[Rfam]
This 69-nucleotide sequence from Chiloscyllium punctatum belongs to the Rfam family "Small nucleolar RNA SNORD123".
The family's consensus secondary structure was predicted with WAR.
The source organism's lineage runs through Eukaryota, Deuterostomia, Craniata, Elasmobranchii and Chiloscyllium.
It scores 58 bits against the family's covariance model.
A reference for the family is Yang et al. (2006), "snoSeeker: an advanced computational package for screening of guide and orphan snoRNA genes in the human genome", Nucleic Acids Res.
RNA sequence: UGUGGAAAUGAUGAUCUAAGGGAUCUGAUAUUGUCUGAAGUAAAGAUGCCAUCCAUUUCCUGAUUCACA
Numbered sequence: 001u002g003u004g005g006a007a008a009u010g011a012u013g014a015u016c017u018a019a020g021g022g023a024u025c026u027g028a029u030a031u032u033g034u035c036u037g038a039a040g041u042a043a044a045g046a047u048g049c050c051a052u053c054c055a056u057u058u059c060c061u062g063a064u065u066c067a068c069a
Base pairs, nucleotide, nucleotide: 001069002068003067004066005065006064